[Rfam]
Shown here is an 89-nucleotide RNA from Rhododendron williamsianum, a member of the family "Small nucleolar RNA SNORD25".
The match comes from Rfam's covariance-model search (46 bits).
Its Rfam clan is "SNORD25 clan".
Rfam links the family to the GO terms RNA processing and nucleolus.
The family's RNA type in Rfam is C/D-box small nucleolar RNA.
Taxonomically the source falls in Rhododendron (Eukaryota, Euphyllophyta, Spermatophyta, Mesangiospermae).
For this family Rfam cites "Identification of 10 novel snoRNA gene clusters from Arabidopsis thaliana" (Qu et al., Nucleic Acids Res, 2001).
RNA sequence: GGAGGCUGUGAAGAGUAACUACAGACCUGUAAUGAUGCAUGUGCGAUUAUGAUCGCCGAUCUUUUGAACAUCCAAGGGACUGAGUUGUU
Number, nucleotide and partner (000 for none) at each position: 001g000002g088003a000004g086005g085006c084007u000008g000009u000010g000011a000012a000013g000014a000015g000016u000017a000018a000019c000020u000021a000022c000023a000024g000025a000026c000027c000028u000029g000030u000031a000032a000033u000034g000035a000036u000037g000038c000039a000040u000041g000042u000043g000044c000045g000046a000047u000048u000049a000050u000051g000052a000053u000054c000055g000056c000057c000058g000059a000060u000061c000062u000063u000064u000065u000066g000067a000068a000069c000070a000071u000072c000073c000074a000075a000076g000077g000078g000079a000080c000081u000082g000083a000084g006085u005086u004087g000088u002089u000